mir-26 microRNA precursor family: an 81-nucleotide sequence from Scleropages formosus.
The family's consensus secondary structure was predicted with RNAalifold.
For this family Rfam cites "Identification of novel genes coding for small expressed RNAs" (Lagos-Quintana et al., Science, 2001).
The organism belongs to Scleropages, within Eukaryota.
It scores 63 bits against the family's covariance model.
RNA sequence: CUGCUUCCCGAAACAAGUAAUCAAGAAUAGGCCGUGCUGGCAGGAACCAGCCUAUCCUGGAUUACUUGAACCGGGCCGCAG
Numbered sequence: 001c002u003g004c005u006u007c008c009c010g011a012a013a014c015a016a017g018u019a020a021u022c023a024a025g026a027a028u029a030g031g032c033c034g035u036g037c038u039g040g041c042a043g044g045a046a047c048c049a050g051c052c053u054a055u056c057c058u059g060g061a062u063u064a065c066u067u068g069a070a071c072c073g074g075g076c077c078g079c080a081g
Stems, first nucleotide, its partner, number of pairs: 002080003007075004014068009024058002027055006